The family of this 90-nucleotide RNA from Strongylocentrotus purpuratus is "mir-4850 microRNA precursor family". The base pairs follow the family's consensus structure, which was predicted with RNAalifold. NCBI's taxonomy places the organism under Eukaryota, Deuterostomia, Echinodermata, Eleutherozoa, Strongylocentrotus. The match comes from Rfam's covariance-model search (98 bits).

[Rfam]
RNA sequence: GAAGAUCGUUUAUCAUGACUGUAAACAGGAGGGGCCCCAAGGAUUGAACCCUGAGCCACUCCUGUGUUGACAUUCAUGAUGUUUGACUUU
Numbered sequence: 001g002a003a004g005a006u007c008g009u010u011u012a013u014c015a016u017g018a019c020u021g022u023a024a025a026c027a028g029g030a031g032g033g034g035c036c037c038c039a040a041g042g043a044u045u046g047a048a049c050c051c052u053g054a055g056c057c058a059c060u061c062c063u064g065u066g067u068u069g070a071c072a073u074u075c076a077u078g079a080u081g082u083u084u085g086a087c088u089u090u
Stems, first nucleotide, its partner, number of pairs: 001090004006086003011081008020072003025065001027063005033057003038053002041050001